RNA sequence: GGCGAUAAACGGUGCGCGGAAUAAGCGUUGUGGACCCGGGGGCAGUGCCCGGCGCCUCCACCAAGGGGGGCGAAACAGGCUCGACACGCGUGGUAAAGGCCCAUUUUUCGCUCGGCAUGGUUCCGCCGUUAUCGGGCCAUUCUACAGGUGCCAACGACAACGAGGCACUCGCUCUCGCCGCGUAA
Numbered sequence: 001g002g003c004g005a006u007a008a009a010c011g012g013u014g015c016g017c018g019g020a021a022u023a024a025g026c027g028u029u030g031u032g033g034a035c036c037c038g039g040g041g042g043c044a045g046u047g048c049c050c051g052g053c054g055c056c057u058c059c060a061c062c063a064a065g066g067g068g069g070g071c072g073a074a075a076c077a078g079g080c081u082c083g084a085c086a087c088g089c090g091u092g093g094u095a096a097a098g099g100c101c102c103a104u105u106u107u108u109c110g111c112u113c114g115g116c117a118u119g120g121u122u123c124c125g126c127c128g129u130u131a132u133c134g135g136g137c138c139a140u141u142c143u144a145c146a147g148g149u150g151c152c153a154a155c156g157a158c159a160a161c162g163a164g165g166c167a168c169u170c171g172c173u174c175u176c177g178c179c180g181c182g183u184a185a
Stems, first nucleotide, its partner, number of pairs: 001112005014102001016100002026090003030087003036052005053072007113128004

A member of the RNA family "permuted transfer-messenger RNA" from Acidisphaera rubrifaciens, 185 nucleotides long. It scores 140 bits against the family's covariance model. About the family: Bacterial tmRNA, also known as 10Sa RNA or SsrA, is named for its dual tRNA and mRNA-like properties. By type it is a non-coding RNA gene.